The record is a 47-nucleotide RNA from Candidatus Kuenenia stuttgartensis, which matches "Guanidine-II riboswitch aptamer (mini-ykkC)" in Rfam. On this family, see Weinberg et al., Nucleic Acids Res 2007: "Identification of 22 candidate structured RNAs in bacteria using the CMfinder comparative genomics pipeline". From the family's description: Simpler in structure and has fewer highly conserved nucleotide positions than the ykkC-yxkD leader. A search with the family's covariance model found it, with a score of 45 bits. Rfam links the family to the GO term regulation of gene expression.

RNA sequence: AAGUGAGGACGACCUCACCGCUCCAAUAUACAUAGGGGACGACCUCA
Numbered sequence: 001a002a003g004u005g006a007g008g009a010c011g012a013c014c015u016c017a018c019c020g021c022u023c024c025a026a027u028a029u030a031c032a033u034a035g036g037g038g039a040c041g042a043c044c045u046c047a
Stems, first nucleotide, its partner, number of pairs: 003018006035046004